[Rfam]
Overview: The family of this 94-nucleotide sequence from Sorghum bicolor is "MIR5387 microRNA precursor family". Rfam links the family to the GO terms RISC complex and miRNA-mediated post-transcriptional gene silencing. Taxonomically the source falls in Sorghum (Eukaryota, Magnoliopsida, Petrosaviidae, Andropogonodae). The family has 2 seed sequences and 1,029 matches in Rfam 15.1. A search with the family's covariance model found it, with a score of 75 bits. The family's consensus secondary structure was predicted with RNAalifold.
RNA sequence: UUGUAACAAGGGCCGGUGCCAAAGGGUCCUUCCCAACGGCUACUGACAGGUGCUGUCGGAGCAGGAACCCUUUAGCACCGGUUUGCGUUACCAA
Numbered sequence: 001u002u003g004u005a006a007c008a009a010g011g012g013c014c015g016g017u018g019c020c021a022a023a024g025g026g027u028c029c030u031u032c033c034c035a036a037c038g039g040c041u042a043c044u045g046a047c048a049g050g051u052g053c054u055g056u057c058g059g060a061g062c063a064g065g066a067a068c069c070c071u072u073u074a075g076c077a078c079c080g081g082u083u084u085g086c087g088u089u090a091c092c093a094a
Stems, first nucleotide, its partner, number of pairs: 003091005010084010021073007029065002033059002036056002043049002